[Rfam]
RNA sequence: CGGCGGAAUUCGGGAGACGCUGGCAAUCGCCAGGGCCGAAGGAGCAACCGCCCCGGUAAACUCUCAGGCACCAAGGACCGGUUCCGCACA
Numbered sequence: 001c002g003g004c005g006g007a008a009u010u011c012g013g014g015a016g017a018c019g020c021u022g023g024c025a026a027u028c029g030c031c032a033g034g035g036c037c038g039a040a041g042g043a044g045c046a047a048c049c050g051c052c053c054c055g056g057u058a059a060a061c062u063c064u065c066a067g068g069c070a071c072c073a074a075g076g077a078c079c080g081g082u083u084c085c086g087c088a089c090a
Base pairs, nucleotide, nucleotide: 006085008083010081011080012079013078020033021032022031023030035069036068037067038065039064042063043062044061048056049055
Rfam assigns this 90-nucleotide sequence from Paracoccus sp. S1E-3 to the family "Glycine riboswitch aptamer". Rfam links the family to the GO term glycine biosynthetic process. The pairing is the family consensus, mapped onto this sequence. This family represents the bacterial glycine riboswitch. A search with the family's covariance model found it, with a score of 56 bits.